[Rfam]
RNA sequence: CCAUAUUUGCACUGUGUACAAGAGCUGAUCAAGAGGUUCACAAAGAUGUAUUAGCCAUCUUGAUCAGCUCUUGUACACAGUGCAAAUAUGGC
Numbered sequence: 001c002c003a004u005a006u007u008u009g010c011a012c013u014g015u016g017u018a019c020a021a022g023a024g025c026u027g028a029u030c031a032a033g034a035g036g037u038u039c040a041c042a043a044a045g046a047u048g049u050a051u052u053a054g055c056c057a058u059c060u061u062g063a064u065c066a067g068c069u070c071u072u073g074u075a076c077a078c079a080g081u082g083c084a085a086a087u088a089u090g091g092c
Stems, first nucleotide, its partner, number of pairs: 003089010015077009025067003029063006
Overview:
Shown here is a 92-nucleotide RNA sequence from Nicotiana tabacum, a member of the family "mir-239 microRNA precursor family". It scores 52 bits against the family's covariance model. Lineage of the source: Eukaryota > Streptophyta > Magnoliopsida > asterids > Nicotiana. Gene Ontology terms of the family: RISC complex and miRNA-mediated post-transcriptional gene silencing.